Shown here is a 74-nucleotide RNA from Xanthomonas phage BUDD, a member of the family "tRNA". Rfam links the family to the GO term triplet codon-amino acid adaptor activity. By type it is a transfer RNA.
[Rfam]
RNA sequence: GCGGGUAUAAUUCAGUCUGGUAGAAUGCUUGCUUGCCAUGCAAGUCGUCGCGAGUUCGAAUCUCGCUACCCGCU
Numbered sequence: 001g002c003g004g005g006u007a008u009a010a011u012u013c014a015g016u017c018u019g020g021u022a023g024a025a026u027g028c029u030u031g032c033u034u035g036c037c038a039u040g041c042a043a044g045u046c047g048u049c050g051c052g053a054g055u056u057c058g059a060a061u062c063u064c065g066c067u068a069c070c071c072g073c074u
Stems, first nucleotide, its partner, number of pairs: 001073007010026004028044005050066005